[Rfam]
Source information:
Rfam assigns this 112-nucleotide RNA from Wenxinia saemankumensis to the family "Glycine riboswitch aptamer". The match comes from Rfam's covariance-model search (43 bits). The organism belongs to Wenxinia, within Bacteria.
RNA sequence: CCGCGCAGGCCGGGAGAAUCCGGCAGCGCUGCCGGUGCCGCACCGGCGGCGAUGCCGGUGCCGAAGGAGCAACAGCCCCGGAACCUCUCAGGCGAAAGGACCGCCUGCGCGA
Dot-bracket structure: ....(((((.(((......((((((...........................)))))).(((((..(((...(......)....))))).))).......))))))))....
Numbered sequence: 001c002c003g004c005g006c007a008g009g010c011c012g013g014g015a016g017a018a019u020c021c022g023g024c025a026g027c028g029c030u031g032c033c034g035g036u037g038c039c040g041c042a043c044c045g046g047c048g049g050c051g052a053u054g055c056c057g058g059u060g061c062c063g064a065a066g067g068a069g070c071a072a073c074a075g076c077c078c079c080g081g082a083a084c085c086u087c088u089c090a091g092g093c094g095a096a097a098g099g100a101c102c103g104c105c106u107g108c109g110c111g112a
Stems, first nucleotide, its partner, number of pairs: 005108005011103003020058006060093003063089002067087003073080001